[Rfam]
The record is a 149-nucleotide RNA sequence from Brassica carinata, which matches "U4 spliceosomal RNA" in Rfam. The match comes from Rfam's covariance-model search (62 bits). From the family's description: U4 small nuclear RNA (U4 snRNA) is a component of the major U2-dependent spliceosome. The organism belongs to Brassica, within Eukaryota. Pairs were carried over by alignment from the consensus structure, which is taken from published work.
RNA sequence: GUUUUAGAACAGGAGACGCAACUAAUGAAGUACUAACCGAAGGUGCAUCUAUUGCUGGUUGAAAACUAUUUCCAAACCCCCUCAUAGGCCUCUGGGAUUGUCCUAUGCCUUUUGAGAAUUUCUGGAAGGGCUCCCCCCGAGGUAAAGCC
Numbered sequence: 001g002u003u004u005u006a007g008a009a010c011a012g013g014a015g016a017c018g019c020a021a022c023u024a025a026u027g028a029a030g031u032a033c034u035a036a037c038c039g040a041a042g043g044u045g046c047a048u049c050u051a052u053u054g055c056u057g058g059u060u061g062a063a064a065a066c067u068a069u070u071u072c073c074a075a076a077c078c079c080c081c082u083c084a085u086a087g088g089c090c091u092c093u094g095g096g097a098u099u100g101u102c103c104u105a106u107g108c109c110u111u112u113u114g115a116g117a118a119u120u121u122c123u124g125g126a127a128g129g130g131c132u133c134c135c136c137c138c139g140a141g142g143u144a145a146a147g148c149c
Stems, first nucleotide, its partner, number of pairs: 015049002018046002021044002023041001030037002081116003084112001086110004091105001129149004